A member of the RNA family "Glycine riboswitch aptamer" from Nocardioides agariphilus, 87 nucleotides long. A search with the family's covariance model found it, with a score of 70 bits. The organism belongs to Nocardioides, within Bacteria.
[Rfam]
Nucleotides: 087
Base pairs, nucleotide, nucleotide: 006082007081008080009079010078011077012076013075020030021029022028023027032067033066034065035063036062039061040060041059045055046054
Number, partner (000 for none) and nucleotide at each position: 001000c002000g003000a004000u005000c006082c007081c008080g009079c010078g011077c012076g013075g014000g015000a016000g017000a018000g019000u020030c021029u022028g023027g024000a025000c026000a027023c028022c029021a030020g031000c032067g033066c034065c035063g036062a037000a038000g039061g040060g041059g042000c043000a044000a045055u046054u047000c048000c049000u050000c051000c052000c053000c054046g055045g056000a057000a058000c059041c060040u061039c062036u063035c064000a065034g066033g067032c068000a069000c070000c071000a072000g073000g074000a075013c076012c077011g078010c079009g080008c081007g082006g083000a084000c085000c086000a087000g